[Rfam]
RNA sequence: CCUUUAAGUAGAGGCGCGCUGUUCAUGAGUCGCCAGUCGUAGGUUGACCCCGAUGAUGACUGGUUAAAGGGUACAGCGCCGAAGUGAUCGUUGCGUCAUCAACGUUCGCUGGGCCAGCAUUGAACAAAUGCCGGACUGCCAUAGUGUGUUGUCUAUGGAGCGCUACCUUGAAG
Number, nucleotide and partner (000 for none) at each position: 001c000002c000003u000004u000005u000006a168007a000008g166009u165010a164011g163012a000013g000014g000015c000016g079017c078018g077019c076020u075021g074022u073023u000024c071025a000026u000027g000028a000029g000030u000031c000032g064033c063034c062035a061036g060037u059038c058039g057040u000041a000042g000043g000044u000045u000046g000047a000048c000049c000050c000051c000052g000053a000054u000055g000056a000057u039058g038059a037060c036061u035062g034063g033064u032065u000066a000067a000068a000069g000070g000071g024072u000073a022074c021075a020076g019077c018078g017079c016080c000081g000082a000083a110084g109085u108086g107087a106088u000089c104090g103091u102092u101093g100094c000095g000096u000097c000098a000099u000100c093101a092102a091103c090104g089105u000106u087107c086108g085109c084110u083111g137112g136113g000114c134115c133116a000117g131118c130119a129120u128121u127122g000123a000124a000125c000126a000127a121128a120129u119130g118131c117132c000133g115134g114135a000136c112137u111138g000139c158140c157141a156142u155143a154144g153145u000146g000147u000148g000149u000150u000151g000152u000153c144154u143155a142156u141157g140158g139159a000160g000161c000162g000163c011164u010165a009166c008167c000168u006169u000170g000171a000172a000173g000

This 173-nucleotide RNA sequence from Vibrio cholerae belongs to the Rfam family "Lysine riboswitch aptamer". The base pairs follow the family's consensus structure, which is taken from published work. Lineage of the source: Bacteria > Vibrionales > Vibrio > Vibrio cholerae O1 > Vibrio cholerae O1 biovar El Tor.